The family of this 511-nucleotide part of an RNA from Gasterosteus aculeatus is "Eukaryotic large subunit ribosomal RNA". Rfam's curators put it in the seed alignment.

RNA sequence: CCCUCCGAAGUUUCCCUCAGGAUAGCUGGCGCUCAGCCUCGCAGUUUUAUCUGGUAAAGCGAAUGACUAGAGGCCUUGGGGCCGAAACGAUCUCAACCUAUUCUCAAACUUUAAAUGGGUAAGAGGCCCGGCUCGCUGGCUUGGAGCCGGGCGUGGAAUGCGAGCCGCCUAGUGGGCCACUUUUGGUAAGCAGAACUGGCGCUGCGGGAUGAACCGAACGCCGGGUUAUGGCGCCCGAUGCCGACGCUCACCAGAGCCCAGAAAAGGUGUUGGUCGAUACAGACAGCAGGACGGUGGCCAUGGAAGUCGGAACCCGCUAAGGAGUGUGUAACAACUCACCUGCCGAAUCAACUAGCCCUGAAAAUGGAUGGCGCUGGAGCGUCGGGCCCAUACCCGGCCGUCGCCGGCAGCAGAACGCCGCGAGGGCUACGCCGCGACGAGUAGGAGGGCCGCCGCGGUGCGCACGGAAGCCCAGGGCGCGAGCCCGGGUGGAGCCGCCGCGGGUGCAGAU
Numbered sequence: 001c002c003c004u005c006c007g008a009a010g011u012u013u014c015c016c017u018c019a020g021g022a023u024a025g026c027u028g029g030c031g032c033u034c035a036g037c038c039u040c041g042c043a044g045u046u047u048u049a050u051c052u053g054g055u056a057a058a059g060c061g062a063a064u065g066a067c068u069a070g071a072g073g074c075c076u077u078g079g080g081g082c083c084g085a086a087a088c089g090a091u092c093u094c095a096a097c098c099u100a101u102u103c104u105c106a107a108a109c110u111u112u113a114a115a116u117g118g119g120u121a122a123g124a125g126g127c128c129c130g131g132c133u134c135g136c137u138g139g140c141u142u143g144g145a146g147c148c149g150g151g152c153g154u155g156g157a158a159u160g161c162g163a164g165c166c167g168c169c170u171a172g173u174g175g176g177c178c179a180c181u182u183u184u185g186g187u188a189a190g191c192a193g194a195a196c197u198g199g200c201g202c203u204g205c206g207g208g209a210u211g212a213a214c215c216g217a218a219c220g221c222c223g224g225g226u227u228a229u230g231g232c233g234c235c236c237g238a239u240g241c242c243g244a245c246g247c248u249c250a251c252c253a254g255a256g257c258c259c260a261g262a263a264a265a266g267g268u269g270u271u272g273g274u275c276g277a278u279a280c281a282g283a284c285a286g287c288a289g290g291a292c293g294g295u296g297g298c299c300a301u302g303g304a305a306g307u308c309g310g311a312a313c314c315c316g317c318u319a320a321g322g323a324g325u326g327u328g329u330a331a332c333a334a335c336u337c338a339c340c341u342g343c344c345g346a347a348u349c350a351a352c353u354a355g356c357c358c359u360g361a362a363a364a365u366g367g368a369u370g371g372c373g374c375u376g377g378a379g380c381g382u383c384g385g386g387c388c389c390a391u392a393c394c395c396g397g398c399c400g401u402c403g404c405c406g407g408c409a410g411c412a413g414a415a416c417g418c419c420g421c422g423a424g425g426g427c428u429a430c431g432c433c434g435c436g437a438c439g440a441g442u443a444g445g446a447g448g449g450c451c452g453c454c455g456c457g458g459u460g461c462g463c464a465c466g467g468a469a470g471c472c473c474a475g476g477g478c479g480c481g482a483g484c485c486c487g488g489g490u491g492g493a494g495c496c497g498c499c500g501c502g503g504g505u506g507c508a509g510a511u
Stems, first nucleotide, its partner, number of pairs: 001449006011024001013022003028169004033164001045124008057112001058110002064106003069101001071099003076096006083089001126152009176200004181195005205216003220398005226392001230388003239385001241384001245381003265359003269356006276349003286343005292316003298310002317321001322337001326335002399439006406433003451506001453503008462495002470490002476485003